This 62-nucleotide sequence belongs to the Rfam family "DUF3800-IX RNA". From the family's description: Actinobacteria, Firmicutes (1 example), Nitrospirae, Proteobacteria, Verrucomicrobia (1 example). The family's RNA type in Rfam is small RNA.
[Rfam]
RNA sequence: AGUUCCAACCCGAACAGUCGCCGGAUGGCGUGCGUGCCGAAAGGAUAGGGUUGGAACUUUUA
Dot-bracket structure: (((((((((((.....((((((....)))).))...((....))...)))))))))))....